[Rfam]
RNA sequence: ACGUGCUCCGGGGUCGGUGGAAGUCCGAGCCGGCGGUAAUAGUCCGCGACCCGGUCACGCCAACCCGUCGGGGCGGCGCGGCCGGUUGAGCUGGUGGAAGCCCAGCACCGACGGUGAGAGUCCGGAUGGGAGGAAGCACGA
Numbered sequence: 001a002c003g004u005g006c007u008c009c010g011g012g013g014u015c016g017g018u019g020g021a022a023g024u025c026c027g028a029g030c031c032g033g034c035g036g037u038a039a040u041a042g043u044c045c046g047c048g049a050c051c052c053g054g055u056c057a058c059g060c061c062a063a064c065c066c067g068u069c070g071g072g073g074c075g076g077c078g079c080g081g082c083c084g085g086u087u088g089a090g091c092u093g094g095u096g097g098a099a100g101c102c103c104a105g106c107a108c109c110g111a112c113g114g115u116g117a118g119a120g121u122c123c124g125g126a127u128g129g130g131a132g133g134a135a136g137c138a139c140g141a
Stems, first nucleotide, its partner, number of pairs: 002140006008133002015027003029121002031110002033047004042108002051085006090106005112124003
RNA: FMN riboswitch aptamer (RFN element)